[Rfam]
RNA sequence: AGCCCCGGAGCAGGCUGGAAGACUGGUGAUUUUUGUUGUUCCCAAUGUCAAACAACAAAUCCCAGUCUCCGCCCUGCCCGGGGCA
Numbered sequence: 001a002g003c004c005c006c007g008g009a010g011c012a013g014g015c016u017g018g019a020a021g022a023c024u025g026g027u028g029a030u031u032u033u034u035g036u037u038g039u040u041c042c043c044a045a046u047g048u049c050a051a052a053c054a055a056c057a058a059a060u061c062c063c064a065g066u067c068u069c070c071g072c073c074c075u076g077c078c079c080g081g082g083g084c085a
Base pairs, nucleotide, nucleotide: 002084003083004082005081006080008079011076012075013074014073016071017070018069020068021067022066023065024064026063028061029060030059031058032057035056036055037054038053039052040051
This 85-nucleotide RNA sequence from Nyctibius grandis belongs to the Rfam family "mir-7 microRNA precursor family". About the family: This family represents the microRNA (miRNA) precursor mir-7. The match comes from Rfam's covariance-model search (63 bits). Rfam links the family to the GO terms miRNA-mediated post-transcriptional gene silencing and RISC complex. The source organism's lineage runs through Eukaryota, Metazoa, Euteleostomi, Archelosauria and Nyctibius.